[Rfam]
RNA sequence: AUCUCGCAUCAGGAACGCUAAAUGCGUACCAACCGAGCACAAAAGCCACGGUGGUUCAGAAUGCGGAUAGAUCUAUCAAAACAAAUGAUCCACU
Numbered sequence: 001a002u003c004u005c006g007c008a009u010c011a012g013g014a015a016c017g018c019u020a021a022a023u024g025c026g027u028a029c030c031a032a033c034c035g036a037g038c039a040c041a042a043a044a045g046c047c048a049c050g051g052u053g054g055u056u057c058a059g060a061a062u063g064c065g066g067a068u069a070g071a072u073c074u075a076u077c078a079a080a081a082c083a084a085a086u087g088a089u090c091c092a093c094u
Stems, first nucleotide, its partner, number of pairs: 006064004015027004028055003033051003037046002041089001044086001066077004
The record is a 94-nucleotide RNA from Aureicoccus marinus, which matches "SAM-I/IV (S-adenosyl methionine) riboswitch aptamer" in Rfam.
Pairs were carried over by alignment from the consensus structure, which is taken from published work.
Rfam 15.1 lists 567 matches to the family in 508 species.